[Rfam]
This 108-nucleotide sequence from Rhizobium sp. BK251 belongs to the Rfam family "Guanidine-I riboswitch aptamer". Rfam's curators write: This family represents a conserved RNA structure found upstream of the ykkC and yxkD genes in Bacillus subtilis and related genes in other bacteria. The function of this family is unclear although it has been suggested that it may function to switch on efflux pumps and detoxification systems in response to harmful environmental molecules.

Nucleotides: 108
Stems, first nucleotide, its partner, number of pairs: 007055006015045002020042002022039001023036005056081001057079007083103001085106001089101003
Number, partner (000 for none) and nucleotide at each position: 001000u002000g003000a004000g005000u006000u007055g008054g009053u010052c011051g012050c013000u014000a015045g016044g017000g018000u019000u020042c021041c022039g023036g024035c025034g026033u027032c028000a029000u030000u031000u032027g033026a034025c035024g036023u037000g038000a039022c040000u041021g042020g043000u044016c045015c046000g047000a048000g049000a050012g051011c052010g053009g054008u055007c056081a057079c058078c059077g060076a061075c062074g063073g064000g065000g066000a067000g068000a069000a070000a071000u072000c073063c074062c075061g076060u077059c078058g079057g080000g081056u082000g083103c084000a085106c086000g087000g088000c089101g090100g091099g092000a093000u094000a095000a096000a097000a098000g099091c100090c101089c102000g103083g104000g105000a106085g107000a108000c